[Rfam]
RNA sequence: UCCCACUGAGGAAACAUUUACAUCUCUUACCUCCUGUCCUAGUUCUAGAGCCUGUAAAAGUGAACCCACUGGGGCUGGGUCGGGGAGAAGAGGAAAGUUUAUUUCAGAAGGAACUGUGUAGGGGAU
Numbered sequence: 001u002c003c004c005a006c007u008g009a010g011g012a013a014a015c016a017u018u019u020a021c022a023u024c025u026c027u028u029a030c031c032u033c034c035u036g037u038c039c040u041a042g043u044u045c046u047a048g049a050g051c052c053u054g055u056a057a058a059a060g061u062g063a064a065c066c067c068a069c070u071g072g073g074g075c076u077g078g079g080u081c082g083g084g085g086a087g088a089a090g091a092g093g094a095a096a097g098u099u100u101a102u103u104u105c106a107g108a109a110g111g112a113a114c115u116g117u118g119u120a121g122g123g124g125a126u
Base pairs, nucleotide, nucleotide: 001125002124003123004122
The family of this 126-nucleotide sequence from Rousettus aegyptiacus is "Small nucleolar RNA SNORD22". Lineage of the source: Eukaryota > Vertebrata > Teleostomi > Eutheria > Rousettus. A search with the family's covariance model found it, with a score of 129 bits. Pairs were carried over by alignment from the consensus structure, which was predicted with PFOLD.